[Rfam]
RNA sequence: CCUGCCGAGGAGCGCUGCGACCCCCUGAUCGAUCCGGGGCCAGGCUCGGCAACCGAUCAACGGCGCUCACAAACC
Numbered sequence: 001c002c003u004g005c006c007g008a009g010g011a012g013c014g015c016u017g018c019g020a021c022c023c024c025c026u027g028a029u030c031g032a033u034c035c036g037g038g039g040c041c042a043g044g045c046u047c048g049g050c051a052a053c054c055g056a057u058c059a060a061c062g063g064c065g066c067u068c069a070c071a072a073a074c075c
Stems, first nucleotide, its partner, number of pairs: 003051006021039004
A member of the RNA family "SAH (S-adenosyl-L-homocysteine) riboswitch aptamer" from Thauera aminoaromatica, 75 nucleotides long. Taxonomically the source falls in Thauera (Bacteria, Pseudomonadota, Betaproteobacteria, Rhodocyclales). The base pairs follow the family's consensus structure, which is taken from published work.